This 120-nucleotide sequence from Streptomyces cacaoi belongs to the Rfam family "Streptomyces-metH RNA". By type it is a small RNA. The match comes from Rfam's covariance-model search (85 bits).
RNA sequence: CUGUCCGCUGGACGGAAUGUCUACCGGCGCUCUUGCGCCCGCCCUAUACGCUGACCGGGUGCGCUGCUUCACCCGCGGCGCAAAGCCGACAGCCGUCGCAUCCCAGGGAGCUCUUCCAUG
Numbered sequence: 001c002u003g004u005c006c007g008c009u010g011g012a013c014g015g016a017a018u019g020u021c022u023a024c025c026g027g028c029g030c031u032c033u034u035g036c037g038c039c040c041g042c043c044c045u046a047u048a049c050g051c052u053g054a055c056c057g058g059g060u061g062c063g064c065u066g067c068u069u070c071a072c073c074c075g076c077g078g079c080g081c082a083a084a085g086c087c088g089a090c091a092g093c094c095g096u097c098g099c100a101u102c103c104c105a106g107g108g109a110g111c112u113c114u115u116c117c118a119u120g
Stems, first nucleotide, its partner, number of pairs: 060082004065077003085099002088097003